[Rfam]
RNA sequence: AAUCCCGUUAGGUAAACUGUUGGAAACUUCAGGACACAAAGCUAAAGGGACUUCCUCCGAAAGUGGAAAAGUCAGCCAGUUGCAAGU
Number, nucleotide and partner (000 for none) at each position: 001a000002a000003u000004c000005c000006c000007g000008u000009u000010a000011g000012g037013u036014a000015a000016a000017c032018u031019g030020u000021u000022g027023g000024a000025a000026a000027c022028u000029u000030c019031a018032g017033g000034a000035c000036a013037c012038a000039a000040a081041g080042c079043u078044a000045a000046a000047g077048g076049g073050a072051c071052u000053u000054c000055c000056u067057c066058c065059g064060a000061a000062a000063g000064u059065g058066g057067a056068a000069a000070a000071g051072u050073c049074a000075g000076c048077c047078a043079g042080u041081u040082g000083c000084a000085a000086g000087u000
RNA: c-di-GMP-I riboswitch aptamer